[Rfam]
Rfam assigns this 171-nucleotide sequence from Anaerostipes sp. 992a to the family "Group II catalytic intron D1-D4-3".
RNA sequence: GUCACCGUGAGGUGGGGUCUGAAGGAGGCUGCAGGCAAACCGCUGACCCGACGAACAGAAAUCUCAUUAGGCUAUGAAACGCGGAUGAGGUCGCUCAACAGACAAAAGUCCAAUAACUGCACGGAGCGUGAAUAGUAGAUGAGGCGUGGUAUAAGCGGGAAAGAACGUGUG
Numbered sequence: 001g002u003c004a005c006c007g008u009g010a011g012g013u014g015g016g017g018u019c020u021g022a023a024g025g026a027g028g029c030u031g032c033a034g035g036c037a038a039a040c041c042g043c044u045g046a047c048c049c050g051a052c053g054a055a056c057a058g059a060a061a062u063c064u065c066a067u068u069a070g071g072c073u074a075u076g077a078a079a080c081g082c083g084g085a086u087g088a089g090g091u092c093g094c095u096c097a098a099c100a101g102a103c104a105a106a107a108g109u110c111c112a113a114u115a116a117c118u119g120c121a122c123g124g125a126g127c128g129u130g131a132a133u134a135g136u137a138g139a140u141g142a143g144g145c146g147u148g149g150u151a152u153a154a155g156c157g158g159g160a161a162a163g164a165a166c167g168u169g170u171g
Stems, first nucleotide, its partner, number of pairs: 002015005030169003036163001040158005046150003049146002062144005071136003075132001079129004083111004090103003

Overview:
Taxonomically the source falls in Anaerostipes (Bacteria, Bacillota, Clostridia, Lachnospiraceae).